[Rfam]
RNA sequence: UUAAAUAAUUGUUAGGUGAGGCUCCUAUAAAGAAACAAGCUGCUGCCGCGAAAGAAUCGAGAGAUUCUGAGUUGGUUAACAGGAAUAAUCGCGAAGGUUAUUCAUAAUGUAGCUGAUAAGUCCGAUGACUUGUCUACGCUUUAUAGUGCUAAAGCUCAACGGUGACUAUGAAA
Numbered sequence: 001u002u003a004a005a006u007a008a009u010u011g012u013u014a015g016g017u018g019a020g021g022c023u024c025c026u027a028u029a030a031a032g033a034a035a036c037a038a039g040c041u042g043c044u045g046c047c048g049c050g051a052a053a054g055a056a057u058c059g060a061g062a063g064a065u066u067c068u069g070a071g072u073u074g075g076u077u078a079a080c081a082g083g084a085a086u087a088a089u090c091g092c093g094a095a096g097g098u099u100a101u102u103c104a105u106a107a108u109g110u111a112g113c114u115g116a117u118a119a120g121u122c123c124g125a126u127g128a129c130u131u132g133u134c135u136a137c138g139c140u141u142u143a144u145a146g147u148g149c150u151a152a153a154g155c156u157c158a159a160c161g162g163u164g165a166c167u168a169u170g171a172a173a
Stems, first nucleotide, its partner, number of pairs: 005169003009165002011160002013095001015156003020150003025146008039113005046074001048072002055066004083103003088098003115134006